Shown here is a 50-nucleotide RNA sequence from Agrobacterium bohemicum, a member of the family "Guanidine-II riboswitch aptamer (mini-ykkC)".
Taxonomically the source falls in Agrobacterium (Bacteria, Alphaproteobacteria, Hyphomicrobiales, Rhizobiaceae).
The base pairs follow the family's consensus structure, which is taken from published work.
RNA sequence: CCGCCGGGACGACCCGGCAUUACGGGCAAAAAACAAGCGGGACGACCCGA
Numbered sequence: 001c002c003g004c005c006g007g008g009a010c011g012a013c014c015c016g017g018c019a020u021u022a023c024g025g026g027c028a029a030a031a032a033a034c035a036a037g038c039g040g041g042a043c044g045a046c047c048c049g050a
Stems, first nucleotide, its partner, number of pairs: 003018006038049004